This 357-nucleotide sequence from Consotaella salsifontis belongs to the Rfam family "Alphaproteobacteria transfer-messenger RNA".
Rfam's curators write: Bacterial tmRNA, also known as 10Sa RNA or SsrA, is named for its dual tRNA and mRNA-like properties. Its role is to liberate the mRNA from a stalled ribosome. To accomplish this part of the tmRNA is used as a reading frame that ends in a translation stop signal. The broken mRNA is replaced in the ribosome by the tmRNA and translation of the tmRNA leads to addition of a proteolysis tag to the incomplete protein enabling recognition by a protease. Recently a number of permuted tmRNA genes have been found encoded in two parts. tmRNAs have been identified in eubacteria and some chloroplasts but are absent from archaeal and eukaryote nuclear genomes.
Gene Ontology term of the family: RNA catabolic process.
Rfam classes the family as a non-coding RNA gene.
RNA sequence: CACCUUUUCAGGCGGGCAAGGAGUCCUUAUAUUCGACCGUGCCGGUCAUCCGAUCGGCUAUGGCGAUAAACGGUCGAUGAAAUAAACCUUUCGGACCCGGGGGCGGUACCCGGCGCCUCCACCUGAACCCAUCGUGGAUGGGCUCAGGCGGGGGCGAAAUAGGAUCGACGAGGGCGUAAAGAUCGAACUUUCGCUCGGCAUGGUUCCGCCGUUAUCGGGCCGAAUCAAUAGUUGCCAACGACAACUAUGCGGAAGCCCGUCUCGCCGCGUAAGCAGCGCGACAGCUUCAAUUCAAAGCCCUAGGGGUUCGCACUUCUAGGCGGGGCUCGGAGGCGCCUGGCAACAGAAGCCUCCACC
Numbered sequence: 001c002a003c004c005u006u007u008u009c010a011g012g013c014g015g016g017c018a019a020g021g022a023g024u025c026c027u028u029a030u031a032u033u034c035g036a037c038c039g040u041g042c043c044g045g046u047c048a049u050c051c052g053a054u055c056g057g058c059u060a061u062g063g064c065g066a067u068a069a070a071c072g073g074u075c076g077a078u079g080a081a082a083u084a085a086a087c088c089u090u091u092c093g094g095a096c097c098c099g100g101g102g103g104c105g106g107u108a109c110c111c112g113g114c115g116c117c118u119c120c121a122c123c124u125g126a127a128c129c130c131a132u133c134g135u136g137g138a139u140g141g142g143c144u145c146a147g148g149c150g151g152g153g154g155c156g157a158a159a160u161a162g163g164a165u166c167g168a169c170g171a172g173g174g175c176g177u178a179a180a181g182a183u184c185g186a187a188c189u190u191u192c193g194c195u196c197g198g199c200a201u202g203g204u205u206c207c208g209c210c211g212u213u214a215u216c217g218g219g220c221c222g223a224a225u226c227a228a229u230a231g232u233u234g235c236c237a238a239c240g241a242c243a244a245c246u247a248u249g250c251g252g253a254a255g256c257c258c259g260u261c262u263c264g265c266c267g268c269g270u271a272a273g274c275a276g277c278g279c280g281a282c283a284g285c286u287u288c289a290a291u292u293c294a295a296a297g298c299c300c301u302a303g304g305g306g307u308u309c310g311c312a313c314u315u316c317u318a319g320g321c322g323g324g325g326c327u328c329g330g331a332g333g334c335g336c337c338u339g340g341c342a343a344c345a346g347a348a349g350c351c352u353c354c355a356c357c
Stems, first nucleotide, its partner, number of pairs: 041058007062195005072188001074186005087174003091171003097113005114156007196211004201222003205219003323338004329354006